[Rfam]
RNA sequence: UUUUUCGAUCAGGCGUAGGGUCUGAAAUAACUCAUAAAUUAGAGUGUUGUCAUCAGCUUCAUCCUGUGUUACUGGUCAAGACUGGAGUUAAACAACAACACUACAUCU
Numbered sequence: 001u002u003u004u005u006c007g008a009u010c011a012g013g014c015g016u017a018g019g020g021u022c023u024g025a026a027a028u029a030a031c032u033c034a035u036a037a038a039u040u041a042g043a044g045u046g047u048u049g050u051c052a053u054c055a056g057c058u059u060c061a062u063c064c065u066g067u068g069u070u071a072c073u074g075g076u077c078a079a080g081a082c083u084g085g086a087g088u089u090a091a092a093c094a095a096c097a098a099c100a101c102u103a104c105a106u107c108u
Base pairs, nucleotide, nucleotide: 043102044101045100046099047098048097049096055089056088057087058086059085060084062081063080065078
Small nucleolar RNA snoR97: a 108-nucleotide RNA from Malus domestica. Rfam links the family to the GO terms nucleolus and RNA processing. Rfam 15.1 lists 862 matches to the family in 223 species. On this family, see Marker et al., Curr Biol 2002: "Experimental RNomics: identification of 140 candidates for small non-messenger RNAs in the plant Arabidopsis thaliana". Taxonomically the source falls in Malus (Eukaryota, Streptophytina, Spermatophyta, rosids).